[Rfam]
Nucleotides: 078
Base pairs, nucleotide, nucleotide: 004075006073007072008071010069011068012067013066014065015064016063017062018061019060020059022058023057024056025055026054027053028052029051030050032048
Number, partner (000 for none) and nucleotide at each position: 001000c002000c003000g004075c005000g006073u007072c008071c009000u010069g011068g012067g013066c014065u015064u016063g017062u018061u019060u020059u021000c022058a023057g024056u025055u026054g027053c028052c029051u030050g031000c032048g033000g034000g035000u036000u037000u038000a039000u040000u041000u042000g043000g044000a045000c046000g047000a048032c049000u050030c051029a052028g053027g054026c055025a056024g057023c058022u059020a060019a061018a062017g063016c064015a065014a066013g067012u068011c069010u070000g071008g072007g073006a074000c075004g076000g077000g078000u

Shown here is a 78-nucleotide sequence from Alligator mississippiensis, a member of the family "mir-1788 microRNA precursor family". Gene Ontology terms of the family: RISC complex and miRNA-mediated post-transcriptional gene silencing. Pairs were carried over by alignment from the consensus structure, which was predicted with RNAalifold.